Background:
The record is a 422-nucleotide part of an RNA from Babesia microti, which matches "Eukaryotic large subunit ribosomal RNA" in Rfam.

[Rfam]
RNA sequence: UGGCCUGAAAUUGGAUGUGAUGAUCCGCUGAAUUUAAGCAUAUAACUAAGCGGAAGAAAAGAAAAUAACAAUGAUUCCCUUAGUAACGGCGAGUGAACAGGGAAGAGUCCAAAGUGUAAAUCGGCGCUUUUCCCGCGUCGACUUGUGGUCUUUAGCGGUGUUGCCAGUGAAGGCGCAGGGCCAAGUUUCUUGGAAAAGGACAUCAUGGAGGGUGAAAGUCCCGUGAUGUGCUUUGCAGUCCUUCACGUUUCGGUGCAUCUGCAUAGAGUCGUGCUCUUUGGGAUUGGAGUGCAAAUAGUGUGAUAAAUUUCACAUAAGACUAAAUACUGGUGUGAGACCGAUAGCUAAUAAGUACCGUGAGGGAAAGAUGAAAAGAACUUUGAAAAGAGGGUUAAAAGUACCUGAAACUGCUGAGAAGGAAG
Numbered sequence: 001u002g003g004c005c006u007g008a009a010a011u012u013g014g015a016u017g018u019g020a021u022g023a024u025c026c027g028c029u030g031a032a033u034u035u036a037a038g039c040a041u042a043u044a045a046c047u048a049a050g051c052g053g054a055a056g057a058a059a060a061g062a063a064a065a066u067a068a069c070a071a072u073g074a075u076u077c078c079c080u081u082a083g084u085a086a087c088g089g090c091g092a093g094u095g096a097a098c099a100g101g102g103a104a105g106a107g108u109c110c111a112a113a114g115u116g117u118a119a120a121u122c123g124g125c126g127c128u129u130u131u132c133c134c135g136c137g138u139c140g141a142c143u144u145g146u147g148g149u150c151u152u153u154a155g156c157g158g159u160g161u162u163g164c165c166a167g168u169g170a171a172g173g174c175g176c177a178g179g180g181c182c183a184a185g186u187u188u189c190u191u192g193g194a195a196a197a198g199g200a201c202a203u204c205a206u207g208g209a210g211g212g213u214g215a216a217a218g219u220c221c222c223g224u225g226a227u228g229u230g231c232u233u234u235g236c237a238g239u240c241c242u243u244c245a246c247g248u249u250u251c252g253g254u255g256c257a258u259c260u261g262c263a264u265a266g267a268g269u270c271g272u273g274c275u276c277u278u279u280g281g282g283a284u285u286g287g288a289g290u291g292c293a294a295a296u297a298g299u300g301u302g303a304u305a306a307a308u309u310u311c312a313c314a315u316a317a318g319a320c321u322a323a324a325u326a327c328u329g330g331u332g333u334g335a336g337a338c339c340g341a342u343a344g345c346u347a348a349u350a351a352g353u354a355c356c357g358u359g360a361g362g363g364a365a366a367g368a369u370g371a372a373a374a375g376a377a378c379u380u381u382g383a384a385a386a387g388a389g390g391g392u393u394a395a396a397a398g399u400a401c402c403u404g405a406a407a408c409u410g411c412u413g414a415g416a417a418g419g420a421a422g
Base pairs, nucleotide, nucleotide: 024055025053026052027051028050029049035042036041065072066071076103077102078101079100080099086094087093106321107320108319109318113149115147116146117145118144119143121141122140123139124138125137126136127135155262156261157259158258159257160256162255163254164253165252167246168245169244170243171242172241173240175236176235177234178233179232180231181230185201187200188199189198190197204208211221212220271292272291273290274289275288276287277286298315299314300313301312302311355362356361378389379388380387381386

Pairs were carried over by alignment from the consensus structure, which is taken from published work. The source organism's lineage runs through Eukaryota, Sar, Alveolata, Babesia and Babesia microti. A search with the family's covariance model found it, with a score of 3172 bits.